[Rfam]
RNA sequence: AUAAAACGGUUAAAAAGGACCAGUAAUGGUGCCAUCCUGUUUCAGAGAGCCGGCGGAAGGUGGAAGCCGGCCAGGACCAUCAUGAACUCCCCUUUCAUUUCUGCAGGUGUGAAGGAAGAAAUCCGAAACGGACUAUUCUUGUAAUGCUUGCCGUAUUCUGCGUUAAAGAAUAAAGAAGUGAGUGGCCUAUGCACUAAAUUGGGUGGUACCGCGGGAGAAAACAACCUUCCGUCCCAGGA
Numbered sequence: 001a002u003a004a005a006a007c008g009g010u011u012a013a014a015a016a017g018g019a020c021c022a023g024u025a026a027u028g029g030u031g032c033c034a035u036c037c038u039g040u041u042u043c044a045g046a047g048a049g050c051c052g053g054c055g056g057a058a059g060g061u062g063g064a065a066g067c068c069g070g071c072c073a074g075g076a077c078c079a080u081c082a083u084g085a086a087c088u089c090c091c092c093u094u095u096c097a098u099u100u101c102u103g104c105a106g107g108u109g110u111g112a113a114g115g116a117a118g119a120a121a122u123c124c125g126a127a128a129c130g131g132a133c134u135a136u137u138c139u140u141g142u143a144a145u146g147c148u149u150g151c152c153g154u155a156u157u158c159u160g161c162g163u164u165a166a167a168g169a170a171u172a173a174a175g176a177a178g179u180g181a182g183u184g185g186c187c188u189a190u191g192c193a194c195u196a197a198a199u200u201g202g203g204u205g206g207u208a209c210c211g212c213g214g215g216a217g218a219a220a221a222c223a224a225c226c227u228u229c230c231g232u233c234c235c236a237g238g239a
Base pairs, nucleotide, nucleotide: 008098015094016093017092018091026083027082028081029080030079031078037074038073039072049071050070051069052068053067054066104150105149106148107147108146109145110144152162153161154160181195182194183193184192200236201235202234203233211232212231213230214229215228216227217226
RNA: T-box leader